[Rfam]
RNA sequence: CACUGUGUGAGGAGCGAACUAAAAAAGGGCAUCAAGACGAAACACGGCCAGUCGUUGAUGCCCUUUUUUGCAUU
Numbered sequence: 001c002a003c004u005g006u007g008u009g010a011g012g013a014g015c016g017a018a019c020u021a022a023a024a025a026a027g028g029g030c031a032u033c034a035a036g037a038c039g040a041a042a043c044a045c046g047g048c049c050a051g052u053c054g055u056u057g058a059u060g061c062c063c064u065u066u067u068u069u070g071c072a073u074u
Base pairs, nucleotide, nucleotide: 015070021069022068023067024066025065028062029061033057034056035055036053037052038051
RNA: Cyano-1 RNA